[Rfam]
RNA sequence: AACCGACAAGGGCAAACCAUCUGAAAGGGUGGGACGCAAAGCCACAGACCUAAAGGUUGUAGGAGCAACCCAUGGUGGCUGGGCUGCCGAA
Numbered sequence: 001a002a003c004c005g006a007c008a009a010g011g012g013c014a015a016a017c018c019a020u021c022u023g024a025a026a027g028g029g030u031g032g033g034a035c036g037c038a039a040a041g042c043c044a045c046a047g048a049c050c051u052a053a054a055g056g057u058u059g060u061a062g063g064a065g066c067a068a069c070c071c072a073u074g075g076u077g078g079c080u081g082g083g084c085u086g087c088c089g090a091a
Stems, first nucleotide, its partner, number of pairs: 012037002017032006040085004045081003048076003055070006
A member of the RNA family "c-di-GMP-I riboswitch aptamer" from bacterium HR37, 91 nucleotides long. On this family, see Sudarsan et al., Science 2008: "Riboswitches in Eubacteria Sense the Second Messenger Cyclic Di-GMP". It scores 83 bits against the family's covariance model. Gene Ontology term of the family: cyclic-di-GMP binding.